The record is an 82-nucleotide RNA from Eumeta japonica, which matches "mir-2765 microRNA precursor family" in Rfam.
RNA sequence: CCCGCGUCCAGAGCUGGUAACUCCACCACCGUUGGCGUUGGCGUCCGCCAGCGGCGGCAGAGUUCCUGCUCGUGGGCGCGCC
Numbered sequence: 001c002c003c004g005c006g007u008c009c010a011g012a013g014c015u016g017g018u019a020a021c022u023c024c025a026c027c028a029c030c031g032u033u034g035g036c037g038u039u040g041g042c043g044u045c046c047g048c049c050a051g052c053g054g055c056g057g058c059a060g061a062g063u064u065c066c067u068g069c070u071c072g073u074g075g076g077c078g079c080g081c082c
Stems, first nucleotide, its partner, number of pairs: 003080008016067002019064005026057002029054009
Dot-bracket structure: ..((((((((.....((.(((((..((.(((((((((........))))))))).))..))))).)).....))))))))..
Pairs were carried over by alignment from the consensus structure, which was predicted with RNAalifold. A search with the family's covariance model found it, with a score of 66 bits.